[Rfam]
RNA: Insect-Specific Flavivirus 3' UTR repeats Ra
Organism: Culex flavivirus
Nucleotides: 058
Stems, first nucleotide, its partner, number of pairs: 006052002013033004034050006
Number, partner (000 for none) and nucleotide at each position: 001000g002000c003000c004000c005000a006052c007051g008000c009000a010000a011000g012000g013033g014032g015031a016030g017000a018000g019000a020000a021000g022000a023000u024000u025000u026000u027000c028000g029000c030016c031015u032014c033013c034050g035049g036048g037047u038046g039045u040000u041000g042000a043000c044000g045039a046038c047037a048036c049035c050034c051007c052006g053000a054000c055000c056000c057000c058000a